[Rfam]
RNA sequence: UACCUGAGGGGAAAAACUGUGCGUUAUAUGUUCAAAAUGUUAUUAAUAUCAUAAGCGUAUAGCUUUUCCCCUUAGGUG
Numbered sequence: 001u002a003c004c005u006g007a008g009g010g011g012a013a014a015a016a017c018u019g020u021g022c023g024u025u026a027u028a029u030g031u032u033c034a035a036a037a038u039g040u041u042a043u044u045a046a047u048a049u050c051a052u053a054a055g056c057g058u059a060u061a062g063c064u065u066u067u068c069c070c071c072u073u074a075g076g077u078g
Stems, first nucleotide, its partner, number of pairs: 003076005009070003013066002017062005024055002027053004
This 78-nucleotide RNA sequence from Chironomus riparius belongs to the Rfam family "mir-965 microRNA precursor family". A reference for the family is Huang et al. (2012), "The regulation of silkworm fibroin L chain production by miRNA-965 and miRNA-1926 in insect cells", Bioorg Khim. Gene Ontology terms of the family: miRNA-mediated post-transcriptional gene silencing and RISC complex. The source organism's lineage runs through Eukaryota, Eumetazoa, Chironomidae, Chironomini and Chironomus.